[Rfam]
The record is a 57-nucleotide RNA sequence, which matches "terC RNA" in Rfam. The family's RNA type in Rfam is cis-regulatory element. It is one of the family's seed sequences.
RNA sequence: GUCAGGAUCCGGGCCCCUCUGGCGACUUAGACGUGGUCGUGAUGUCGGAUCCCUUCA
Dot-bracket structure: .....(((((((.........((((((.......))))))....)))))))......